[Rfam]
RNA sequence: AGAACGGUGAUGAGUUAUUAACAGACCUGUAAUGAAUUGCGGAUAUGAUCGCAGUUUAUUAUGAACAUCUAAGGGACUGAGUUCAU
Numbered sequence: 001a002g003a004a005c006g007g008u009g010a011u012g013a014g015u016u017a018u019u020a021a022c023a024g025a026c027c028u029g030u031a032a033u034g035a036a037u038u039g040c041g042g043a044u045a046u047g048a049u050c051g052c053a054g055u056u057u058a059u060u061a062u063g064a065a066c067a068u069c070u071a072a073g074g075g076a077c078u079g080a081g082u083u084c085a086u
Stems, first nucleotide, its partner, number of pairs: 002084004
RNA: Small nucleolar RNA SNORD25
Organism: Gossypium mustelinum